Source information
A member of the RNA family "Vault RNA" from Darwinula stevensoni, 100 nucleotides long. It scores 43 bits against the family's covariance model. The organism belongs to Darwinula, within Eukaryota. The family's RNA type in Rfam is non-coding RNA gene. This family of RNAs are found as part of the enigmatic vault ribonucleoprotein complex.
RNA sequence: GGGUCGGCCCAGCCGACUGGGUACUUCGAAUCCAUUUGCUUUCUCCCAUUUCGUAAGAAACAAGAAUAUGACAGUCCCAGCGGCGCAGUCCAACCCUUUU
Numbered sequence: 001g002g003g004u005c006g007g008c009c010c011a012g013c014c015g016a017c018u019g020g021g022u023a024c025u026u027c028g029a030a031u032c033c034a035u036u037u038g039c040u041u042u043c044u045c046c047c048a049u050u051u052c053g054u055a056a057g058a059a060a061c062a063a064g065a066a067u068a069u070g071a072c073a074g075u076c077c078c079a080g081c082g083g084c085g086c087a088g089u090c091c092a093a094c095c096c097u098u099u100u
Stems, first nucleotide, its partner, number of pairs: 002095003006091002012084004017080004025074002027070002